[Rfam]
RNA sequence: CUCGUCUGAGGAGACGGGAAGAUCGGCCUCGCCGCUGCUUCGGUCAGUGCGUUGGGCCGGGCCUUGACAAGCAGCCCGAGGGGAGGCUCUUCGGAGCUGGACCUGAACCCUUGCGAUUGCCGCCUGCUCCUCCUCCCUGCGUUUUACGAGGGGUUUCGCGCCUUGCACCUCCCACCUCUGGACGUGCUUCCACUUCUCUCCUCGCUUGUGGAGGGAGCCAGCGAUUAGGCCGGAGCGAGCCUGGGGGCGGCCGGCCGUGAAGGCUUCAAGGGGACCGAUUCGCCAUG
Numbered sequence: 001c002u003c004g005u006c007u008g009a010g011g012a013g014a015c016g017g018g019a020a021g022a023u024c025g026g027c028c029u030c031g032c033c034g035c036u037g038c039u040u041c042g043g044u045c046a047g048u049g050c051g052u053u054g055g056g057c058c059g060g061g062c063c064u065u066g067a068c069a070a071g072c073a074g075c076c077c078g079a080g081g082g083g084a085g086g087c088u089c090u091u092c093g094g095a096g097c098u099g100g101a102c103c104u105g106a107a108c109c110c111u112u113g114c115g116a117u118u119g120c121c122g123c124c125u126g127c128u129c130c131u132c133c134u135c136c137c138u139g140c141g142u143u144u145u146a147c148g149a150g151g152g153g154u155u156u157c158g159c160g161c162c163u164u165g166c167a168c169c170u171c172c173c174a175c176c177u178c179u180g181g182a183c184g185u186g187c188u189u190c191c192a193c194u195u196c197u198c199u200c201c202u203c204g205c206u207u208g209u210g211g212a213g214g215g216a217g218c219c220a221g222c223g224a225u226u227a228g229g230c231c232g233g234a235g236c237g238a239g240c241c242u243g244g245g246g247g248c249g250g251c252c253g254g255c256c257g258u259g260a261a262g263g264c265u266u267c268a269a270g271g272g273g274a275c276c277g278a279u280u281c282g283c284c285a286u287g
Base pairs, nucleotide, nucleotide: 001013002012003011016032018030019029021027034062035061036060083156084155085154087153130152131151132150134148185220186219188217189216190215191214197212198211199210231254233252235251236250
RNA: HIF-1 alpha IRES